[Rfam]
RNA sequence: UAAUAAAGCACUGCUGACUUAUGUAUAUGCUGAGGAUUGGCUCAGUGUUUCUACCAACUACCGUAAAGAGUUGACUACAUAACCUUGUGUGGUCGCU
Numbered sequence: 001u002a003a004u005a006a007a008g009c010a011c012u013g014c015u016g017a018c019u020u021a022u023g024u025a026u027a028u029g030c031u032g033a034g035g036a037u038u039g040g041c042u043c044a045g046u047g048u049u050u051c052u053a054c055c056a057a058c059u060a061c062c063g064u065a066a067a068g069a070g071u072u073g074a075c076u077a078c079a080u081a082a083c084c085u086u087g088u089g090u091g092g093u094c095g096c097u
Base pairs, nucleotide, nucleotide: 019082020081021080022079023078024077025076029046030045031044032043033042055073056072057071058070059069
RNA: Purine riboswitch aptamer
Organism: Lachnospiraceae bacterium 1_4_56FAA